[Rfam]
RNA sequence: UGGUCGGGAGAGCCGCAUACAGCGGUUCGCUGGAGAUAACCUCCACCCGGCUU
Numbered sequence: 001u002g003g004u005c006g007g008g009a010g011a012g013c014c015g016c017a018u019a020c021a022g023c024g025g026u027u028c029g030c031u032g033g034a035g036a037u038a039a040c041c042u043c044c045a046c047c048c049g050g051c052u053u
Stems, first nucleotide, its partner, number of pairs: 002052007010028007031045005
This 53-nucleotide RNA sequence belongs to the Rfam family "DUF3800-VI RNA". The family's consensus secondary structure is taken from published work.